[Rfam]
RNA sequence: AAUCAUAUUUGUAGGAACAAGAAAAAGCAGAUCUAUUCUAUACCAUAAGUAAGAAUACGCAAUGGUG
Numbered sequence: 001a002a003u004c005a006u007a008u009u010u011g012u013a014g015g016a017a018c019a020a021g022a023a024a025a026a027g028c029a030g031a032u033c034u035a036u037u038c039u040a041u042a043c044c045a046u047a048a049g050u051a052a053g054a055a056u057a058c059g060c061a062a063u064g065g066u067g
Base pairs, nucleotide, nucleotide: 003022004021006019008017009016010015043064049058050057051056
RNA: Plastid-clpP 5UTR RNA
Organism: Abrus precatorius